[Rfam]
RNA: mir-17 microRNA precursor family
RNA sequence: UCGGCAGCACAAAAGUGCUCACAGUGCAGGUAGGAAACUCUGAACUACUGCAGUUUGAGCACUUCAGGCGUUGCCUG
Numbered sequence: 001u002c003g004g005c006a007g008c009a010c011a012a013a014a015g016u017g018c019u020c021a022c023a024g025u026g027c028a029g030g031u032a033g034g035a036a037a038c039u040c041u042g043a044a045c046u047a048c049u050g051c052a053g054u055u056u057g058a059g060c061a062c063u064u065c066a067g068g069c070g071u072u073g074c075c076u077g
Stems, first nucleotide, its partner, number of pairs: 004074004010068001013064009023054001025052003029049005